[Rfam]
RNA: che1 RNA
RNA sequence: AGGACAGGGGGGUCCCUGCUCCACGGCAGGGCCUGUCCUUGCAAAGCAAGGUUGCGCGAGAGCGUGGCCCGUGGUUGUCGCUCGGGGGUGAUCGUCA
Dot-bracket structure: ((((((((.....(((((((....)))))))))))))))..........((((((((....))))))))............................
Numbered sequence: 001a002g003g004a005c006a007g008g009g010g011g012g013u014c015c016c017u018g019c020u021c022c023a024c025g026g027c028a029g030g031g032c033c034u035g036u037c038c039u040u041g042c043a044a045a046g047c048a049a050g051g052u053u054g055c056g057c058g059a060g061a062g063c064g065u066g067g068c069c070c071g072u073g074g075u076u077g078u079c080g081c082u083c084g085g086g087g088g089u090g091a092u093c094g095u096c097a
Stems, first nucleotide, its partner, number of pairs: 001039008014031007050069008